[Rfam]
RNA sequence: AACCACAGUUUACCUGCCUGAAAAGGCAUGGGCUGGUGAUCUUUUGGUCACCAGCCU
Numbered sequence: 001a002a003c004c005a006c007a008g009u010u011u012a013c014c015u016g017c018c019u020g021a022a023a024a025g026g027c028a029u030g031g032g033c034u035g036g037u038g039a040u041c042u043u044u045u046g047g048u049c050a051c052c053a054g055c056c057u
Stems, first nucleotide, its partner, number of pairs: 016027003031056010
This 57-nucleotide RNA sequence from Bowmanella sp. JS7-9 belongs to the Rfam family "Pseudomonas sRNA P26". This small RNA (sRNA) was computationally identified in the genome of the opportunistic pathogen Pseudomonas aeruginosa and its expression verified by northern blot analysis. NCBI's taxonomy places the organism under Bacteria, Pseudomonadota, Gammaproteobacteria, Alteromonadaceae, Bowmanella. It is annotated as a non-coding RNA gene. Pairs were carried over by alignment from the consensus structure, which was predicted with RNAalifold.